[Rfam]
RNA: U12 minor spliceosomal RNA
RNA sequence: GUGCCUUAAACUAAUGAGUAAGGAAAAUAUAAGGGCCCUGGUCAUGCUUGGCUCACAUGCUAACCUAAGUUAGCCCCUAAUUUUUGUAGGGGUACAGGUCGUCCGGGUCGUCCCGUGAGGGACCGCUUACUUUUCGCGGUCCUUCUGGUGACGCGAUCUGCCCC
Numbered sequence: 001g002u003g004c005c006u007u008a009a010a011c012u013a014a015u016g017a018g019u020a021a022g023g024a025a026a027a028u029a030u031a032a033g034g035g036c037c038c039u040g041g042u043c044a045u046g047c048u049u050g051g052c053u054c055a056c057a058u059g060c061u062a063a064c065c066u067a068a069g070u071u072a073g074c075c076c077c078u079a080a081u082u083u084u085u086g087u088a089g090g091g092g093u094a095c096a097g098g099u100c101g102u103c104c105g106g107g108u109c110g111u112c113c114c115g116u117g118a119g120g121g122a123c124c125g126c127u128u129a130c131u132u133u134u135c136g137c138g139g140u141c142c143u144u145c146u147g148g149u150g151a152c153g154c155g156a157u158c159u160g161c162c163c164c
Stems, first nucleotide, its partner, number of pairs: 004023005033054005040047001059074004089164005096159007113148002117145004122140005